[Rfam]
RNA sequence: GUCGCUGUGGCGGAACUGGCAGACGCAUACGACUCAAAAUCGUACGGGAAACCAUAUGGGUUCGAUUCCCAUCAGCGGCA
Numbered sequence: 001g002u003c004g005c006u007g008u009g010g011c012g013g014a015a016c017u018g019g020c021a022g023a024c025g026c027a028u029a030c031g032a033c034u035c036a037a038a039a040u041c042g043u044a045c046g047g048g049a050a051a052c053c054a055u056a057u058g059g060g061u062u063c064g065a066u067u068c069c070c071a072u073c074a075g076c077g078g079c080a
Stems, first nucleotide, its partner, number of pairs: 001079007010026003028044005056072005
Notes: This 80-nucleotide RNA from Alkaliphilus oremlandii belongs to the Rfam family "tRNA". Taxonomically the source falls in Alkaliphilus oremlandii (Bacteria, Bacillota, Clostridia, Natronincolaceae). It is annotated as a transfer RNA. Rfam links the family to the GO term triplet codon-amino acid adaptor activity.